[Rfam]
RNA sequence: GGCGUAUUUUGCGCAGGCGGAGCUCGACCGCCGGUUCAAGCCAUGACGGCGUUCAUUGAUGAUCACCGUGAAGCCUACGGGGUUGAGCCGAUCGGCAAGGUGUUGCCGAUCGCCCCG
Number, nucleotide and partner (000 for none) at each position: 001g000002g000003c000004g000005u000006a000007u000008u000009u000010u000011g000012c000013g000014c000015a000016g032017g031018c030019g029020g028021a000022g000023c000024u000025c000026g000027a000028c020029c019030g018031c017032c016033g000034g000035u000036u000037c000038a000039a000040g000041c000042c000043a000044u000045g000046a000047c000048g000049g000050c000051g000052u000053u000054c000055a000056u000057u000058g000059a000060u000061g000062a000063u000064c000065a000066c000067c000068g000069u000070g000071a000072a000073g000074c000075c000076u000077a000078c117079g116080g115081g114082g113083u000084u000085g000086a000087g000088c000089c112090g111091a000092u109093c108094g107095g106096c105097a104098a103099g000100g000101u000102g000103u098104u097105g096106c095107c094108g093109a092110u000111c090112g089113c082114c081115c080116c079117g078
This 117-nucleotide RNA sequence from Candidatus Contendibacter odensensis belongs to the Rfam family "ALIL pseudoknot". The base pairs follow the family's consensus structure, which is taken from published work. The literature on the family includes a 2008 paper in J Biol Chem by Mazauric et al., "Apical loop-internal loop RNA pseudoknots: a new type of stimulator of -1 translational frameshifting in bacteria".